[Rfam]
Rfam assigns this 503-nucleotide RNA from Colletotrichum salicis to the family "RNase MRP". A search with the family's covariance model found it, with a score of 95 bits. By type it is a ribozyme. The source organism's lineage runs through Eukaryota, Hypocreomycetidae, Glomerellaceae, Colletotrichum and Colletotrichum acutatum species complex. Rfam links the family to the GO terms ribonuclease MRP activity, rRNA processing and ribonuclease MRP complex.

RNA sequence: CCCUCGUCCGACAAAUCGCCAUCGAAGCUCACAAACGGAGAUUUCCUUUGCGGGAGUCUCAGCCGAAAGCUUUGGGAGAAAGUCCCCGGACACACGUUACUUUCCUUUCCAGGGAAGCCAAAACGCCGCGGAAACGCGCCGCCAUAGAAGCACAGCGGCUGACCUCCAAGACCUGCGUCCGGACACAAUGGGCUCUUUCACACCCCGCCCCGUCGCUACAUCGUGGGUCUUCUCUACCUUUCAAGACCCGAGUUUCAGCUUUCCAGGACCUUUUGGAUGAAGAUAUGAGUCCGCGUCUGGAGAGUUGGGGCUUGGGAUCCUUGGGAUGGAUGGGGGAGCCUUUGAUGGCGGGGUGGCCGUUUGGGAGGGCGCGCUUGCCGGGCGAAUUCAAGGGUUCGUCGGAGGGUCUUUCGUCGAGAUCGAUAGGUAUGCGAUUGCCCGUCCACAACCUCUUUACUGAGGUUUGGACGUGUUACUCGAUGGGGCUUAUUCUUGGUGCGAGG
Numbered sequence: 001c002c003c004u005c006g007u008c009c010g011a012c013a014a015a016u017c018g019c020c021a022u023c024g025a026a027g028c029u030c031a032c033a034a035a036c037g038g039a040g041a042u043u044u045c046c047u048u049u050g051c052g053g054g055a056g057u058c059u060c061a062g063c064c065g066a067a068a069g070c071u072u073u074g075g076g077a078g079a080a081a082g083u084c085c086c087c088g089g090a091c092a093c094a095c096g097u098u099a100c101u102u103u104c105c106u107u108u109c110c111a112g113g114g115a116a117g118c119c120a121a122a123a124c125g126c127c128g129c130g131g132a133a134a135c136g137c138g139c140c141g142c143c144a145u146a147g148a149a150g151c152a153c154a155g156c157g158g159c160u161g162a163c164c165u166c167c168a169a170g171a172c173c174u175g176c177g178u179c180c181g182g183a184c185a186c187a188a189u190g191g192g193c194u195c196u197u198u199c200a201c202a203c204c205c206c207g208c209c210c211c212g213u214c215g216c217u218a219c220a221u222c223g224u225g226g227g228u229c230u231u232c233u234c235u236a237c238c239u240u241u242c243a244a245g246a247c248c249c250g251a252g253u254u255u256c257a258g259c260u261u262u263c264c265a266g267g268a269c270c271u272u273u274u275g276g277a278u279g280a281a282g283a284u285a286u287g288a289g290u291c292c293g294c295g296u297c298u299g300g301a302g303a304g305u306u307g308g309g310g311c312u313u314g315g316g317a318u319c320c321u322u323g324g325g326a327u328g329g330a331u332g333g334g335g336g337a338g339c340c341u342u343u344g345a346u347g348g349c350g351g352g353g354u355g356g357c358c359g360u361u362u363g364g365g366a367g368g369g370c371g372c373g374c375u376u377g378c379c380g381g382g383c384g385a386a387u388u389c390a391a392g393g394g395u396u397c398g399u400c401g402g403a404g405g406g407u408c409u410u411u412c413g414u415c416g417a418g419a420u421c422g423a424u425a426g427g428u429a430u431g432c433g434a435u436u437g438c439c440c441g442u443c444c445a446c447a448a449c450c451u452c453u454u455u456a457c458u459g460a461g462g463u464u465u466g467g468a469c470g471u472g473u474u475a476c477u478c479g480a481u482g483g484g485g486c487u488u489a490u491u492c493u494u495g496g497u498g499c500g501a502g503g
Base pairs, nucleotide, nucleotide: 002503003502004501005500006499007498008496009495010494011493014436015435016434017433018432019431022076023074024073025072026071027070028069038060039059040058041057042056043055044054045053046052080488081487082486084485085484086483087482101116102115103114104113105112106111275389276388277387278386372382374380438472440470441469442468443467444466445465